[Rfam]
RNA: mir-1184 microRNA precursor family
Nucleotides: 099
Base pairs, nucleotide, nucleotide: 005097006096007094009092011091012090013089014088020082021081022080023079024078026076027075028074030069031068032067033066036065037064038063046061048059049058
Number, partner (000 for none) and nucleotide at each position: 001000c002000c003000a004000g005097c006096a007094g008000c009092a010000g011091g012090a013089g014088g015000u016000g017000a018000a019000g020082g021081a022080g023079g024078u025000g026076g027075u028074u029000c030069u031068g032067c033066u034000c035000g036065g037064c038063a039000c040000u041000c042000a043000g044000c045000a046061g047000c048059g049058g050000c051000c052000a053000c054000a055000u056000g057000g058049c059048c060000a061046c062000c063038u064037g065036c066033a067032g068031c069030g070000a071000c072000u073000u074028g075027a076026c077000a078024g079023c080022u081021u082020c083000g084000g085000u086000g087000u088014c089013c090012u091011u092009u093000u094007c095000g096006u097005g098000g099000g